[Rfam]
MIR528 microRNA precursor family: a 92-nucleotide RNA from Saccharum sp. Gene Ontology terms of the family: RISC complex and miRNA-mediated post-transcriptional gene silencing. Rfam's curators put it in the seed alignment.

RNA sequence: UGGAAGGGGCAUGCAGAGGAGCACGAGGCUUGGCUAAAAGCCGACCUGUGCUAUGCUACCCCUCGCUGGCUCUCCUGUGCCUGCCUCUUCCA
Numbered sequence: 001u002g003g004a005a006g007g008g009g010c011a012u013g014c015a016g017a018g019g020a021g022c023a024c025g026a027g028g029c030u031u032g033g034c035u036a037a038a039a040g041c042c043g044a045c046c047u048g049u050g051c052u053a054u055g056c057u058a059c060c061c062c063u064c065g066c067u068g069g070c071u072c073u074c075c076u077g078u079g080c081c082u083g084c085c086u087c088u089u090c091c092a
Base pairs, nucleotide, nucleotide: 001092002091003090004089005088006087007086008085009084010083011082013080014079015078017076018075019072020071021070024068